[Rfam]
RNA sequence: AGCAAUAUUCGGAGGUAAGGGAGACAUGAACAACUAAGUCUAUCAAAUAAAGAACCUUUAUUUAGUAGAUCUUGUUUCUGUCUCUUUUUGUGUACUCUU
Numbered sequence: 001a002g003c004a005a006u007a008u009u010c011g012g013a014g015g016u017a018a019g020g021g022a023g024a025c026a027u028g029a030a031c032a033a034c035u036a037a038g039u040c041u042a043u044c045a046a047a048u049a050a051a052g053a054a055c056c057u058u059u060a061u062u063u064a065g066u067a068g069a070u071c072u073u074g075u076u077u078c079u080g081u082c083u084c085u086u087u088u089u090g091u092g093u094a095c096u097c098u099u
Stems, first nucleotide, its partner, number of pairs: 011098004017088010028077006038070006045063008
Dot-bracket structure: ..........((((..((((((((((.((((((....((((((.((((((((...)))))))).)))))).)))))).))))))))))......)))).
Rfam assigns this 99-nucleotide sequence from Streptococcus peroris to the family "Streptococcus sRNA SpF43". The family's RNA type in Rfam is small RNA. A reference for the family is Mann et al. (2012), "Control of virulence by small RNAs in Streptococcus pneumoniae", PLoS Pathog. NCBI's taxonomy places the organism under Bacteria, Bacillati, Bacillota, Streptococcaceae, Streptococcus peroris.